[Rfam]
RNA sequence: AGCACUAUAUAUAAACUGAUGGAUGGGAAUUGUCCCCAUUCUAAGUUACACUGUAGUGCAAAAGGAUUCCUGGCUCUUUCCCAUGCACAGAUGACAUAGUACCAUUCUUCUGUUGCUGGACAGAGUUAAGGAACAGUA
Numbered sequence: 001a002g003c004a005c006u007a008u009a010u011a012u013a014a015a016c017u018g019a020u021g022g023a024u025g026g027g028a029a030u031u032g033u034c035c036c037c038a039u040u041c042u043a044a045g046u047u048a049c050a051c052u053g054u055a056g057u058g059c060a061a062a063a064g065g066a067u068u069c070c071u072g073g074c075u076c077u078u079u080c081c082c083a084u085g086c087a088c089a090g091a092u093g094a095c096a097u098a099g100u101a102c103c104a105u106u107c108u109u110c111u112g113u114u115g116c117u118g119g120a121c122a123g124a125g126u127u128a129a130g131g132a133a134c135a136g137u138a
Stems, first nucleotide, its partner, number of pairs: 002059008014047004021041007067133005072127006079120002085116003088112004093107002